Rfam assigns this 35-nucleotide RNA from Kordia antarctica to the family "DUF805b RNA".
RNA sequence: CAGGCGGAAUCUGAAAAGCCUUUACAGAGUAAGAA
Numbered sequence: 001c002a003g004g005c006g007g008a009a010u011c012u013g014a015a016a017a018g019c020c021u022u023u024a025c026a027g028a029g030u031a032a033g034a035a
Stems, first nucleotide, its partner, number of pairs: 002021004010034003
By type it is a cis-regulatory element.